[Rfam]
RNA sequence: GGUCACGAGCGCCAGCGUGAAGCCCCGGCUUGCUGGCCGGCAACCCUCCUUCGCGGGCGGGGUGCUCCGGGUGAGGACCCGGCUCGGCACGUGAUGUGUCGGGCAAGCCGCGUUC
Numbered sequence: 001g002g003u004c005a006c007g008a009g010c011g012c013c014a015g016c017g018u019g020a021a022g023c024c025c026c027g028g029c030u031u032g033c034u035g036g037c038c039g040g041c042a043a044c045c046c047u048c049c050u051u052c053g054c055g056g057g058c059g060g061g062g063u064g065c066u067c068c069g070g071g072u073g074a075g076g077a078c079c080c081g082g083c084u085c086g087g088c089a090c091g092u093g094a095u096g097u098g099u100c101g102g103g104c105a106a107g108c109c110g111c112g113u114u115c
Base pairs, nucleotide, nucleotide: 001079002078003077004076009038011037012036013035014034015033016032021030022029039066040065041064044062045061046060048057049056082104083103084102085101086100087099088098089097090096091095